Description:
This 368-nucleotide part of an RNA from Candidatus Methanogaster sp. belongs to the Rfam family "Archaeal large subunit ribosomal RNA". Pairs were carried over by alignment from the consensus structure, which is taken from published work. For this family Rfam cites "The comparative RNA web (CRW) site: an online database of comparative sequence and structure information for ribosomal, intron, and other RNAs" (Cannone et al., BMC Bioinformatics, 2002). NCBI's taxonomy places the organism under Archaea, Methanobacteriati, Methanomicrobia, Candidatus Methanogasteraceae, Candidatus Methanogaster.
RNA sequence: AACAGUAGCAGCAAAGUUAGGUGAGAAUCCUAACCGCCGAAGGGGCUAGGUUUCCUCGGCAAUGUUCGUCAGCCGAGGGUUAGUCGGUCCUAAGACGUACCGCAAUUCGAGUACGCCAAAAGGGAAACAGGUUAAUAUUCCUGUACCAUCCAUACUAUAUCUGAAAAGGACCUGACGCAUCCGGAUAUGUUGAGCGGUGCCGUCGCGCCGUUCAAGCACCGAAGCGGGUGGAGUGCCGUAAUGGCGAGAAGCCUCGCGAAUGUGUGAUGACCAAAGUCAACUGAGUCCAGGUGCCCGUGAAAAAGGAGUUUGGAUGUCCGUACCGAGAACCGACACAGGUGCCCCUAGCUGAGAAGGCUAAGGCGUGU
Numbered sequence: 001a002a003c004a005g006u007a008g009c010a011g012c013a014a015a016g017u018u019a020g021g022u023g024a025g026a027a028u029c030c031u032a033a034c035c036g037c038c039g040a041a042g043g044g045g046c047u048a049g050g051u052u053u054c055c056u057c058g059g060c061a062a063u064g065u066u067c068g069u070c071a072g073c074c075g076a077g078g079g080u081u082a083g084u085c086g087g088u089c090c091u092a093a094g095a096c097g098u099a100c101c102g103c104a105a106u107u108c109g110a111g112u113a114c115g116c117c118a119a120a121a122g123g124g125a126a127a128c129a130g131g132u133u134a135a136u137a138u139u140c141c142u143g144u145a146c147c148a149u150c151c152a153u154a155c156u157a158u159a160u161c162u163g164a165a166a167a168g169g170a171c172c173u174g175a176c177g178c179a180u181c182c183g184g185a186u187a188u189g190u191u192g193a194g195c196g197g198u199g200c201c202g203u204c205g206c207g208c209c210g211u212u213c214a215a216g217c218a219c220c221g222a223a224g225c226g227g228g229u230g231g232a233g234u235g236c237c238g239u240a241a242u243g244g245c246g247a248g249a250a251g252c253c254u255c256g257c258g259a260a261u262g263u264g265u266g267a268u269g270a271c272c273a274a275a276g277u278c279a280a281c282u283g284a285g286u287c288c289a290g291g292u293g294c295c296c297g298u299g300a301a302a303a304a305g306g307a308g309u310u311u312g313g314a315u316g317u318c319c320g321u322a323c324c325g326a327g328a329a330c331c332g333a334c335a336c337a338g339g340u341g342c343c344c345c346u347a348g349c350u351g352a353g354a355a356g357g358c359u360a361a362g363g364c365g366u367g368u
Base pairs, nucleotide, nucleotide: 016034017033018032019031020030021029035365036364037363038362043344044343045342046341049324050323054078055077056076057075058074059073063071064070085320086319087318089123090122094117096115097114098113099112101109102108127144128143129142130141131140147316148315149314150313151312152311154309171306172305173304177294178293179292180291181290183288184287185286189281190280191279192278193212194211195210196209197208198207216265217264218263219262225256226255227253228252229251235245236244237243271276330339331338346360347359348358349357